[Rfam]
Rfam assigns this 216-nucleotide part of an RNA from Schizothecium vesticola to the family "Ascomycota telomerase RNA". It scores 687 bits against the family's covariance model. On this family, see Qi et al., Nucleic Acids Res 2013: "The common ancestral core of vertebrate and fungal telomerase RNAs". The family's RNA type in Rfam is non-coding RNA gene. Rfam links the family to the GO terms telomerase activity, telomere maintenance via telomerase and telomerase catalytic core complex.
RNA sequence: GACCCUACAGUUCUCCGAUGCCAAUUGCCCGCAAGGGAAUGUCCCACGACUGCUCGGCGGGGUCUGGAGCACAGCUACACGUCGCACCGUUGGUUCCUGUAUCAGGAUAUAUGCCAAGGUGCCGCGAAGGGAUAUGUUGCUGAGCCGUCGUUGUCCCCAGGGACGACCCAGCCCCGUCGAGUGAUUGGUUUCGGAACUUAACCCUAAUUAUCAAGA
Numbered sequence: 001g002a003c004c005c006u007a008c009a010g011u012u013c014u015c016c017g018a019u020g021c022c023a024a025u026u027g028c029c030c031g032c033a034a035g036g037g038a039a040u041g042u043c044c045c046a047c048g049a050c051u052g053c054u055c056g057g058c059g060g061g062g063u064c065u066g067g068a069g070c071a072c073a074g075c076u077a078c079a080c081g082u083c084g085c086a087c088c089g090u091u092g093g094u095u096c097c098u099g100u101a102u103c104a105g106g107a108u109a110u111a112u113g114c115c116a117a118g119g120u121g122c123c124g125c126g127a128a129g130g131g132a133u134a135u136g137u138u139g140c141u142g143a144g145c146c147g148u149c150g151u152u153g154u155c156c157c158c159a160g161g162g163a164c165g166a167c168c169c170a171g172c173c174c175c176g177u178c179g180a181g182u183g184a185u186u187g188g189u190u191u192c193g194g195a196a197c198u199u200a201a202c203c204c205u206a207a208u209u210a211u212c213a214a215g216a
Stems, first nucleotide, its partner, number of pairs: 009198003015194004